Record summary
The family of this 98-nucleotide RNA from Cajanus cajan is "Small nucleolar RNA Z43". It is annotated as a C/D-box small nucleolar RNA.
[Rfam]
RNA sequence: GGACAGUGACGAUUUUGAUAUUAGGUCUCGUUCGUCGUAAUUGGCCUAAUUGGGCCUUGCCGACCACUCUGAUAUAUCACCACCCAUAUUCUGAGUCC
Number, nucleotide and partner (000 for none) at each position: 001g098002g097003a096004c095005a000006g000007u000008g000009a000010c000011g000012a000013u000014u000015u000016u000017g000018a000019u000020a000021u000022u000023a000024g000025g000026u000027c000028u000029c000030g000031u000032u000033c000034g000035u000036c000037g000038u000039a000040a000041u000042u000043g000044g000045c000046c000047u000048a058049a057050u000051u000052g000053g000054g000055c000056c000057u049058u048059g000060c000061c000062g000063a000064c000065c000066a000067c000068u000069c000070u000071g000072a000073u000074a000075u000076a000077u000078c000079a000080c000081c000082a000083c000084c000085c000086a000087u000088a000089u000090u000091c000092u000093g000094a000095g004096u003097c002098c001